[Rfam]
RNA sequence: AUCUAUCUUCGGGGCAGGGUGAAAAUCCCGACCGGCGGUGAUGAGUGUAAACUCUAAGCCCGCGAGCCGUAAAGGCAGGAUUCGGUGAAAUUCCGAAGCCGACAGUAUAGUCUGGAUGGGAGAAGAUGGAG
Numbered sequence: 001a002u003c004u005a006u007c008u009u010c011g012g013g014g015c016a017g018g019g020u021g022a023a024a025a026u027c028c029c030g031a032c033c034g035g036c037g038g039u040g041a042u043g044a045g046u047g048u049a050a051a052c053u054c055u056a057a058g059c060c061c062g063c064g065a066g067c068c069g070u071a072a073a074g075g076c077a078g079g080a081u082u083c084g085g086u087g088a089a090a091u092u093c094c095g096a097a098g099c100c101g102a103c104a105g106u107a108u109a110g111u112c113u114g115g116a117u118g119g120g121a122g123a124a125g126a127u128g129g130a131g
Base pairs, nucleotide, nucleotide: 003129004128005127006126007125008124009123010122017029018028019027031111032110033101034100035063036062037061038060058099059098068075081097082096083095084094085093103114104113105112